A member of the RNA family "mir-122 microRNA precursor family" from Oncorhynchus tshawytscha, 74 nucleotides long. Lineage of the source: Eukaryota > Deuterostomia > Vertebrata > Actinopterygii > Oncorhynchus.
[Rfam]
RNA sequence: CGAAGCUGUGGAGUGUGACAAUGGUGUUUGUGUCCUCUGCUAUCAAACGCCAUUUUCACACUAUUUAGCUACGG
Numbered sequence: 001c002g003a004a005g006c007u008g009u010g011g012a013g014u015g016u017g018a019c020a021a022u023g024g025u026g027u028u029u030g031u032g033u034c035c036u037c038u039g040c041u042a043u044c045a046a047a048c049g050c051c052a053u054u055u056u057c058a059c060a061c062u063a064u065u066u067a068g069c070u071a072c073g074g
Base pairs, nucleotide, nucleotide: 012062013061014060015059016058017057018056020054021053022052023051024050025049026048027047028046029045030044
Background:
The family has 32 seed sequences and 666 matches in Rfam 15.1.